[Rfam]
RNA sequence: GGAUGUUCUGAAGACCUGCUCUCUAGGCCACGCACGGAGGACGUCUGUUCCUCGAGGGCCGUGUGCCCGCCUAGGGGAAAGUCCCCGGACCGCGGGCAGAGAGUGCCGCGCGCCGCCGGCGCCCGCUCCGCCCCGCAGCCCACGCACGCCGCUGAGACGCUCCCGGGCCGAGCGGGUGAGCGCGGGGCGGGCAUUCGUCACGGCCACAGACACGCAGGUAGUGCGGAGGCGCGUCCCGCGAGCCGGGGCCGCAGCACCAACAGAACGGGGCUCACUCUCAGGCCAUC
Numbered sequence: 001g002g003a004u005g006u007u008c009u010g011a012a013g014a015c016c017u018g019c020u021c022u023c024u025a026g027g028c029c030a031c032g033c034a035c036g037g038a039g040g041a042c043g044u045c046u047g048u049u050c051c052u053c054g055a056g057g058g059c060c061g062u063g064u065g066c067c068c069g070c071c072u073a074g075g076g077g078a079a080a081g082u083c084c085c086c087g088g089a090c091c092g093c094g095g096g097c098a099g100a101g102a103g104u105g106c107c108g109c110g111c112g113c114c115g116c117c118g119g120c121g122c123c124c125g126c127u128c129c130g131c132c133c134c135g136c137a138g139c140c141c142a143c144g145c146a147c148g149c150c151g152c153u154g155a156g157a158c159g160c161u162c163c164c165g166g167g168c169c170g171a172g173c174g175g176g177u178g179a180g181c182g183c184g185g186g187g188c189g190g191g192c193a194u195u196c197g198u199c200a201c202g203g204c205c206a207c208a209g210a211c212a213c214g215c216a217g218g219u220a221g222u223g224c225g226g227a228g229g230c231g232c233g234u235c236c237c238g239c240g241a242g243c244c245g246g247g248g249c250c251g252c253a254g255c256a257c258c259a260a261c262a263g264a265a266c267g268g269g270g271c272u273c274a275c276u277c278u279c280a281g282g283c284c285a286u287c
Base pairs, nucleotide, nucleotide: 002287003286004285005284007282008281009280010279011278014219015218016217017216018215019214022075023074024073025072026071027070028069037062039060040059042057080272081271083270084269085268086267095107096106097105098104110122111121112120113119114118126191127190128189131187132186133185134184135183136182138181139180141178149175150174151173152172159168160167161166221257222256223255224254226252

The record is a 287-nucleotide sequence from Gallus gallus, which matches "RNase MRP" in Rfam.
The family's RNA type in Rfam is ribozyme.